A member of the RNA family "MIR397 microRNA precursor family" from Nicotiana tabacum, 123 nucleotides long. On this family, see Mica et al., BMC Genomics 2009: "High throughput approaches reveal splicing of primary microRNA transcripts and tissue specific expression of mature microRNAs in Vitis vinifera". The base pairs follow the family's consensus structure, which was predicted with WAR.
RNA sequence: CUUAGAAACAUCAUUGAGUGCAGCGUUGAUGUCAAUUUCUGUGAAGUCUUUAAUUUGGCAUUUGGUCUUUUUGCCACUUUUUCCAAUUCGUUGUCAUCUGCGCUGCACUCAAUCAUGUUUUUA
Numbered sequence: 001c002u003u004a005g006a007a008a009c010a011u012c013a014u015u016g017a018g019u020g021c022a023g024c025g026u027u028g029a030u031g032u033c034a035a036u037u038u039c040u041g042u043g044a045a046g047u048c049u050u051u052a053a054u055u056u057g058g059c060a061u062u063u064g065g066u067c068u069u070u071u072u073g074c075c076a077c078u079u080u081u082u083c084c085a086a087u088u089c090g091u092u093g094u095c096a097u098c099u100g101c102g103c104u105g106c107a108c109u110c111a112a113u114c115a116u117g118u119u120u121u122u123a
Stems, first nucleotide, its partner, number of pairs: 006120006013113014028098001030096002

Gene Ontology terms of the family: miRNA-mediated post-transcriptional gene silencing and RISC complex.